[Rfam]
RNA sequence: GGCCUCAAUGAUGAAUUAGAGGAAGUUAUUGUCGAGAAAACGAGACAGACUUUAGCUUCCGUUGCAUCAGGACCAAAACACACCCA
Numbered sequence: 001g002g003c004c005u006c007a008a009u010g011a012u013g014a015a016u017u018a019g020a021g022g023a024a025g026u027u028a029u030u031g032u033c034g035a036g037a038a039a040a041c042g043a044g045a046c047a048g049a050c051u052u053u054a055g056c057u058u059c060c061g062u063u064g065c066a067u068c069a070g071g072a073c074c075a076a077a078a079c080a081c082a083c084c085c086a
Stems, first nucleotide, its partner, number of pairs: 001074002004071002008067003022059002025056004031050003
RNA: Human rhinovirus internal cis-acting regulatory element (CRE)
Organism: Enterovirus betarhino